[Rfam]
Rfam assigns this 82-nucleotide RNA from Oncorhynchus tshawytscha to the family "Selenocysteine transfer RNA".
Its family is annotated with triplet codon-amino acid adaptor activity in the Gene Ontology.
It scores 54 bits against the family's covariance model.
The family has 109 seed sequences and 4,211 matches in Rfam 15.1.
RNA sequence: GCCGGAUGAGCCUCGGUGGUCCGGGGUGCAGGCUUCAAACCUGUAGCUGCUUAGCGGCAGAGUGGUAAUUCCACUUUCGGGC
Numbered sequence: 001g002c003c004g005g006a007u008g009a010g011c012c013u014c015g016g017u018g019g020u021c022c023g024g025g026g027u028g029c030a031g032g033c034u035u036c037a038a039a040c041c042u043g044u045a046g047c048u049g050c051u052u053a054g055c056g057g058c059a060g061a062g063u064g065g066u067a068a069u070u071c072c073a074c075u076u077u078c079g080g081g082c
Stems, first nucleotide, its partner, number of pairs: 001082003005078002008075001011026006027045006047060005062074004